[Rfam]
RNA sequence: CCCUUCUUUAAAGCACCCUGCUAAAAUUGUGGGGCGAGGCUUUCGGGCUUGGCUCUUGCGGGCAUGUAAGCAUGGGUACACCAAGGAAGGACAGUAAAAGCAUUGUUGAAAUGAGGCUAGGACGGACCGCUUAAUGUCCAGUGUCCUUUGUCUCAACAUUCUGUGCUACAAUA
Numbered sequence: 001c002c003c004u005u006c007u008u009u010a011a012a013g014c015a016c017c018c019u020g021c022u023a024a025a026a027u028u029g030u031g032g033g034g035c036g037a038g039g040c041u042u043u044c045g046g047g048c049u050u051g052g053c054u055c056u057u058g059c060g061g062g063c064a065u066g067u068a069a070g071c072a073u074g075g076g077u078a079c080a081c082c083a084a085g086g087a088a089g090g091a092c093a094g095u096a097a098a099a100g101c102a103u104u105g106u107u108g109a110a111a112u113g114a115g116g117c118u119a120g121g122a123c124g125g126a127c128c129g130c131u132u133a134a135u136g137u138c139c140a141g142u143g144u145c146c147u148u149u150g151u152c153u154c155a156a157c158a159u160u161c162u163g164u165g166c167u168a169c170a171a172u173a
Stems, first nucleotide, its partner, number of pairs: 016076002019072004026065002032056002034053002037050005099167005105161001119144001121142001124139003
Notes:
A member of the RNA family "Small nucleolar RNA SNORA81" from Coregonus sp. 'balchen', 173 nucleotides long. The match comes from Rfam's covariance-model search (76 bits). It is annotated as an H/ACA-box small nucleolar RNA.